This 109-nucleotide sequence from Rhizobium sp. P32RR-XVIII belongs to the Rfam family "EcpR1". A search with the family's covariance model found it, with a score of 102 bits. Lineage of the source: Bacteria > Pseudomonadati > Alphaproteobacteria > Rhizobiaceae > Rhizobium. Its family is annotated with regulation of translation in response to stress, negative regulation of cell cycle and mRNA binding in the Gene Ontology. A reference for the family is Wilms et al. (2012), "Deep sequencing uncovers numerous small RNAs on all four replicons of the plant pathogen Agrobacterium tumefaciens", RNA Biol.
RNA sequence: AUACCCCAUGAUGCUCAGGUCCGCCGCAUCUCCUGGGUCGUGGGGUCGGCCGGCUAGCACGCAACUCAAGCGGUUCCUCGUGCCGCGUUGCCUGCUGGCCGGCCCCCAA
Numbered sequence: 001a002u003a004c005c006c007c008a009u010g011a012u013g014c015u016c017a018g019g020u021c022c023g024c025c026g027c028a029u030c031u032c033c034u035g036g037g038u039c040g041u042g043g044g045g046u047c048g049g050c051c052g053g054c055u056a057g058c059a060c061g062c063a064a065c066u067c068a069a070g071c072g073g074u075u076c077c078u079c080g081u082g083c084c085g086c087g088u089u090g091c092c093u094g095c096u097g098g099c100c101g102g103c104c105c106c107c108a109a
Base pairs, nucleotide, nucleotide: 003046004045005044006043007042008041009040010039014037015036016035017034018033019032048104049103050102051101052100053099054098055097056096057095058094